[Rfam]
The family of this 157-nucleotide sequence from Steinernema hermaphroditum is "Potassium channel RNA editing signal". A search with the family's covariance model found it, with a score of 54 bits. The family's RNA type in Rfam is cis-regulatory element. This family represents a group of sequences related to the human potassium channel Kv1.1 hairpin element which directs the efficient modification of an adenosine to inosine by an adenosine deaminase acting on RNA (ADAR). The source organism's lineage runs through Eukaryota, Eumetazoa, Protostomia, Tylenchina and Steinernema. Gene Ontology term of the family: adenosine to inosine editing.
RNA sequence: GUAGGAUACGGGGACAUGGUGCCCAGAACGUGAGUCGGCUACUUGGGCGCGGUUCCAGAUUCUCCGCUUCAGGUACCUGGGACGCCUUGUGGGCAGCCUCUGCGCCGUGAUGGGCGUGUUGACGAUCGCGCUGCCGGUGCCGGUCAUCGUCUCCAAU
Numbered sequence: 001g002u003a004g005g006a007u008a009c010g011g012g013g014a015c016a017u018g019g020u021g022c023c024c025a026g027a028a029c030g031u032g033a034g035u036c037g038g039c040u041a042c043u044u045g046g047g048c049g050c051g052g053u054u055c056c057a058g059a060u061u062c063u064c065c066g067c068u069u070c071a072g073g074u075a076c077c078u079g080g081g082a083c084g085c086c087u088u089g090u091g092g093g094c095a096g097c098c099u100c101u102g103c104g105c106c107g108u109g110a111u112g113g114g115c116g117u118g119u120u121g122a123c124g125a126u127c128g129c130g131c132u133g134c135c136g137g138u139g140c141c142g143g144u145c146a147u148c149g150u151c152u153c154c155a156a157u
Stems, first nucleotide, its partner, number of pairs: 001157002004154002008150004013145003018140001021138002037120003046106007